[Rfam]
Rfam assigns this 131-nucleotide RNA from Notechis scutatus to the family "U8 small nucleolar RNA".
Pairs were carried over by alignment from the consensus structure, which is taken from published work.
Rfam links the family to the GO terms nucleolus and RNA processing.
Rfam classes the family as a C/D-box small nucleolar RNA.

RNA sequence: UCGUCAGUGAGGUAUAUCCUUACCUGUUCCUCCUCCGGGAGAACAGAAAAUGAUGAAUGGAGAGGCAUGAGAGAUGAUUAGACUCUCCGCCAGCCGGGGAACAGCAACACCCCGGUUUGCUCCUUUCUGAU
Numbered sequence: 001u002c003g004u005c006a007g008u009g010a011g012g013u014a015u016a017u018c019c020u021u022a023c024c025u026g027u028u029c030c031u032c033c034u035c036c037g038g039g040a041g042a043a044c045a046g047a048a049a050a051u052g053a054u055g056a057a058u059g060g061a062g063a064g065g066c067a068u069g070a071g072a073g074a075u076g077a078u079u080a081g082a083c084u085c086u087c088c089g090c091c092a093g094c095c096g097g098g099g100a101a102c103a104g105c106a107a108c109a110c111c112c113c114g115g116u117u118u119g120c121u122c123c124u125u126u127c128u129g130a131u
Base pairs, nucleotide, nucleotide: 024046025045026044028043030041031040032039033038069087070086072084073083075080091119092117093116094115095114096113097112098111